[Rfam]
RNA: Plant signal recognition particle RNA
Organism: Cuscuta campestris
RNA sequence: GCCGAGCUCAGUAACGCGAGCUUGUGACCCGAGUGGGGGCUAUGGGGUGUUGGAACUUUGGGCUUGCCCUCGGGGCCGGGUCUUCGGAGCUAUUAUUGGGCCGCCCUAUCCAAGCUGGGAGUUGGGCCAAGGUUCUUGUUCGAAGGAAUGGGAGUCUUGUCCCCUAAAAUGGUGGGUAUUGCGUGAGGCUGGUUUCACAGAGCAGCGAAAACCCCAUCUUCUCAGCAAUGGAAGGACAACGGCCCAUUGUCUUCUAGGCCCAUCUAACCUCAAAGGCUACCCCAAUUGGUUGGACUUUCACCUUU
Number, nucleotide and partner (000 for none) at each position: 001g040002c039003c038004g023005a022006g021007c020008u019009c018010a000011g000012u000013a000014a000015c000016g000017c000018g009019a008020g007021c006022u005023u004024g000025u000026g000027a000028c037029c036030c035031g000032a000033g000034u000035g030036g029037g028038g003039g002040c001041u000042a000043u000044g304045g303046g302047g301048u300049g299050u000051u000052g296053g295054a000055a000056c292057u000058u289059u288060g287061g282062g281063c000064u279065u000066g277067c000068c276069c275070u274071c000072g000073g271074g270075g269076c000077c000078g261079g260080g259081u258082c257083u256084u000085c000086g252087g251088a250089g000090c249091u000092a000093u000094u000095a000096u000097u246098g245099g244100g243101c242102c241103g240104c000105c235106c234107u000108a000109u232110c231111c230112a229113a000114g226115c225116u224117g223118g221119g220120a219121g218122u000123u000124g163125g162126g161127c000128c159129a158130a157131g156132g155133u154134u153135c152136u151137u150138g149139u148140u147141c146142g000143a000144a000145g000146g141147a140148a139149u138150g137151g136152g135153a134154g133155u132156c131157u130158u129159g128160u000161c126162c125163c124164c000165u000166a000167a000168a000169a000170u216171g215172g214173u000174g213175g212176g000177u000178a000179u000180u209181g000182c207183g206184u205185g000186a000187g000188g000189c200190u199191g198192g000193u000194u000195u000196c000197a000198c191199a190200g189201a000202g000203c000204a000205g184206c183207g182208a000209a180210a000211a000212c175213c174214c172215c171216a170217u000218c121219u120220u119221c118222u000223c117224a116225g115226c114227a000228a000229u112230g111231g110232a109233a000234g106235g105236a000237c000238a000239a000240c103241g102242g101243c100244c099245c098246a097247u000248u000249g090250u088251c087252u086253u000254c000255u000256a083257g082258g081259c080260c079261c078262a000263u000264c000265u000266a000267a000268c000269c075270u074271c073272a000273a000274a070275g069276g068277c066278u000279a064280c000281c062282c061283c000284a000285a000286u000287u060288g059289g058290u000291u000292g056293g000294a000295c053296u052297u000298u000299c049300a048301c047302c046303u045304u044305u000